[Rfam]
Lysine riboswitch aptamer: a 181-nucleotide RNA sequence from Bacillus sp. OK048. Lineage of the source: Bacteria > Bacillota > Bacilli > Caryophanales > Bacillus. The family's consensus secondary structure is taken from published work. About the family: Riboswitches are metabolite binding domains within certain messenger RNAs that serve as precision sensors for their corresponding targets.

RNA sequence: AAGUAGGAUAGAGGUGCAAAGACCAUUAGUACGCAGUUGGAGGAUAGUGAGGAUCCUGGGAUGAUUGUGGAAAGGGGAAUUUGCCGAAGCUGAUGGGAUCUCAUUUGUCCUGACGCUGGUUCUGCUAUUGAAGAAAUACAGAACUGUCAUAUAGGAAACUAUAUGGAGGGCUAUCUUACGC
Numbered sequence: 001a002a003g004u005a006g007g008a009u010a011g012a013g014g015u016g017c018a019a020a021g022a023c024c025a026u027u028a029g030u031a032c033g034c035a036g037u038u039g040g041a042g043g044a045u046a047g048u049g050a051g052g053a054u055c056c057u058g059g060g061a062u063g064a065u066u067g068u069g070g071a072a073a074g075g076g077g078a079a080u081u082u083g084c085c086g087a088a089g090c091u092g093a094u095g096g097g098a099u100c101u102c103a104u105u106u107g108u109c110c111u112g113a114c115g116c117u118g119g120u121u122c123u124g125c126u127a128u129u130g131a132a133g134a135a136a137u138a139c140a141g142a143a144c145u146g147u148c149a150u151a152u153a154g155g156a157a158a159c160u161a162u163a164u165g166g167a168g169g170g171c172u173a174u175c176u177u178a179c180g181c
Base pairs, nucleotide, nucleotide: 006176007175008174009173010172011171016084017083018082019081020080023077024076032069033068034067035066036065037064038063039062088117089116090115094112095111096110097109098108099107118145119144120143121142122141123140124139126138127137128136129135147166148165149164150163151162152161153160
A search with the family's covariance model found it, with a score of 113 bits.